PhotoRC-II RNA: a 102-nucleotide RNA sequence. The sequence is in the family's curated seed alignment. By type it is a cis-regulatory element.

[Rfam]
RNA sequence: UAACCGUGCGUACAACUGCUCUCAAACCAAGACCUAUAGGCAGUAUAAUACUUCGUCUUUCAUAUCCGAAAGUAAAGGGAUUUUCGGAAAUAAGUUUCGCUU
Numbered sequence: 001u002a003a004c005c006g007u008g009c010g011u012a013c014a015a016c017u018g019c020u021c022u023c024a025a026a027c028c029a030a031g032a033c034c035u036a037u038a039g040g041c042a043g044u045a046u047a048a049u050a051c052u053u054c055g056u057c058u059u060u061c062a063u064a065u066c067c068g069a070a071a072g073u074a075a076a077g078g079g080a081u082u083u084u085c086g087g088a089a090a091u092a093a094g095u096u097u098c099g100c101u102u
Stems, first nucleotide, its partner, number of pairs: 016043005022038001029059005065088007